[Rfam]
RNA: Rhodo-rpoB RNA
RNA sequence: CGAACGGGCGGGCGCCGGUGGGACGGCGUUCAGGUAUUGUCGGGUUCCCCCUGUUUCUCGGGCGUAUCGCGGCCCCCGACCGCGGAUGCG
Numbered sequence: 001c002g003a004a005c006g007g008g009c010g011g012g013c014g015c016c017g018g019u020g021g022g023a024c025g026g027c028g029u030u031c032a033g034g035u036a037u038u039g040u041c042g043g044g045u046u047c048c049c050c051c052u053g054u055u056u057c058u059c060g061g062g063c064g065u066a067u068c069g070c071g072g073c074c075c076c077c078g079a080c081c082g083c084g085g086a087u088g089c090g
Stems, first nucleotide, its partner, number of pairs: 001042003005039001010031008063090005068084005